About this RNA
The record is an 80-nucleotide RNA, which matches "skipping-rope RNA" in Rfam. It is annotated as a small RNA.
RNA sequence: AGGGAUUGAAGUGGAGAUAGUGCUGCCACGCACCUUAUGGGUCAAAAGAAAUGUAGGAAAGGGCACACCUACCAAUACCU
Numbered sequence: 001a002g003g004g005a006u007u008g009a010a011g012u013g014g015a016g017a018u019a020g021u022g023c024u025g026c027c028a029c030g031c032a033c034c035u036u037a038u039g040g041g042u043c044a045a046a047a048g049a050a051a052u053g054u055a056g057g058a059a060a061g062g063g064c065a066c067a068c069c070u071a072c073c074a075a076u077a078c079c080u
Stems, first nucleotide, its partner, number of pairs: 001080003005076004011029004020066005031048001032042004053072005
Dot-bracket structure: (((.((((..((((.....[[[[[.)))).(((((...)))).....)....(((((....]]]]].))))))))).)))